Annotation: Shown here is a 92-nucleotide sequence from Zingiber officinale, a member of the family "Small nucleolar RNA snoR109". The family's consensus secondary structure was predicted with WAR. Rfam 15.1 lists 680 matches to the family in 220 species. On this family, see Marker et al., Curr Biol 2002: "Experimental RNomics: identification of 140 candidates for small non-messenger RNAs in the plant Arabidopsis thaliana". The source organism's lineage runs through Eukaryota, Streptophyta, Magnoliopsida, Mesangiospermae and Zingiber.
RNA sequence: CGGCUGUAGCAACAUCAAUGCAAGGGAAGAAAACUGGUCGAUUUGCCAUCACAUUUUCAGUUGACAUUUCGCUUACCAAACUUCUCAUAUCA
Numbered sequence: 001c002g003g004c005u006g007u008a009g010c011a012a013c014a015u016c017a018a019u020g021c022a023a024g025g026g027a028a029g030a031a032a033a034c035u036g037g038u039c040g041a042u043u044u045g046c047c048a049u050c051a052c053a054u055u056u057u058c059a060g061u062u063g064a065c066a067u068u069u070c071g072c073u074u075a076c077c078a079a080a081c082u083u084c085u086c087a088u089a090u091c092a
Base pairs, nucleotide, nucleotide: 024086025085026084027083028082029081036073037072038071040069041068045065047063048062